[Rfam]
RNA sequence: GUCGCGCAAGCGCCGUAGGCAGGAGCGGGGGAACCAAGGUAGGCGCCGGAUCGGUCCAGCGGCCAGCAGUGGCCCGGGAACGGAACGGCUUGGGGUGAAGCCCGGUGCGCGCACCGGGCCGGGCAGACUCACGGUCCGAACCCGACAGCUCACCUCGUAGGCGUCGGUGAGGAAACCG
Numbered sequence: 001g002u003c004g005c006g007c008a009a010g011c012g013c014c015g016u017a018g019g020c021a022g023g024a025g026c027g028g029g030g031g032a033a034c035c036a037a038g039g040u041a042g043g044c045g046c047c048g049g050a051u052c053g054g055u056c057c058a059g060c061g062g063c064c065a066g067c068a069g070u071g072g073c074c075c076g077g078g079a080a081c082g083g084a085a086c087g088g089c090u091u092g093g094g095g096u097g098a099a100g101c102c103c104g105g106u107g108c109g110c111g112c113a114c115c116g117g118g119c120c121g122g123g124c125a126g127a128c129u130c131a132c133g134g135u136c137c138g139a140a141c142c143c144g145a146c147a148g149c150u151c152a153c154c155u156c157g158u159a160g161g162c163g164u165c166g167g168u169g170a171g172g173a174a175a176c177c178g
Stems, first nucleotide, its partner, number of pairs: 011163004025158006035092004093143003101118004121137004
RNA: c-di-AMP riboswitch aptamer (ydaO/yuaA leader)